A member of the RNA family "pan motif" from Paenibacillus methanolicus, 118 nucleotides long. The match comes from Rfam's covariance-model search (37 bits). NCBI's taxonomy places the organism under Bacteria, Bacillati, Bacillota, Bacilli, Paenibacillus.
[Rfam]
RNA sequence: UGGGCGGUAUCGCGGAUGGGGCGAACUGCACCUGAACCGGGCGGUCUUCAGGAGAUUGGCCAAUAUUUGCAUGGCAGUGCGUAUUCUGCUCUGAGCCGUUAGGGACCGAGACAGAAGG
Numbered sequence: 001u002g003g004g005c006g007g008u009a010u011c012g013c014g015g016a017u018g019g020g021g022c023g024a025a026c027u028g029c030a031c032c033u034g035a036a037c038c039g040g041g042c043g044g045u046c047u048u049c050a051g052g053a054g055a056u057u058g059g060c061c062a063a064u065a066u067u068u069g070c071a072u073g074g075c076a077g078u079g080c081g082u083a084u085u086c087u088g089c090u091c092u093g094a095g096c097c098g099u100u101a102g103g104g105a106c107c108g109a110g111a112c113a114g115a116a117g118g
Stems, first nucleotide, its partner, number of pairs: 002032002004029005010024004086114003089110003093106001096104002